[Rfam]
RNA: L31-Actinobacteria ribosomal protein leader
RNA sequence: UCGGUUCCGGUUCACGCCGUAACUCCCCGAGACGGGGAGGGCGACCCGGAGCC
Numbered sequence: 001u002c003g004g005u006u007c008c009g010g011u012u013c014a015c016g017c018c019g020u021a022a023c024u025c026c027c028c029g030a031g032a033c034g035g036g037g038a039g040g041g042c043g044a045c046c047c048g049g050a051g052c053c
Base pairs, nucleotide, nucleotide: 003053004052005051007049008048009047010046015043016042017041018040023039024038025037026036027035028034029033